[Rfam]
This 164-nucleotide RNA sequence from Nelumbo nucifera belongs to the Rfam family "small nucleolar RNA snoR143".

RNA sequence: CUGCACUUGUACUGUAGACCUUUCUAAUUCCAGUAGUGUGGCCUUGAGCUAGGGUGCACAAAGUAAAAGCUGUUCUGUUUCAGCAGCGGCCAGACAACCUGUAGAGAUGGAUCCACAGGUGAAUGGCUCAAAUGCCAUUUGUCUACUGAUUUCAUCUCACAAUU
Numbered sequence: 001c002u003g004c005a006c007u008u009g010u011a012c013u014g015u016a017g018a019c020c021u022u023u024c025u026a027a028u029u030c031c032a033g034u035a036g037u038g039u040g041g042c043c044u045u046g047a048g049c050u051a052g053g054g055u056g057c058a059c060a061a062a063g064u065a066a067a068a069g070c071u072g073u074u075c076u077g078u079u080u081c082a083g084c085a086g087c088g089g090c091c092a093g094a095c096a097a098c099c100u101g102u103a104g105a106g107a108u109g110g111a112u113c114c115a116c117a118g119g120u121g122a123a124u125g126g127c128u129c130a131a132a133u134g135c136c137a138u139u140u141g142u143c144u145a146c147u148g149a150u151u152u153c154a155u156c157u158c159a160c161a162a163u164u
Stems, first nucleotide, its partner, number of pairs: 002058005009049002012046001016044002019041002022038001024036003104158008122140002124137003
The literature on the family includes a 2009 paper in Nucleic Acids Res by Chen and Wu, "Mining small RNA sequencing data: a new approach to identify small nucleolar RNAs in Arabidopsis". Pairs were carried over by alignment from the consensus structure, which was predicted with RNAalifold. The match comes from Rfam's covariance-model search (91 bits). Taxonomically the source falls in Nelumbo (Eukaryota, Streptophytina, Embryophyta, Euphyllophyta). By type it is an H/ACA-box small nucleolar RNA.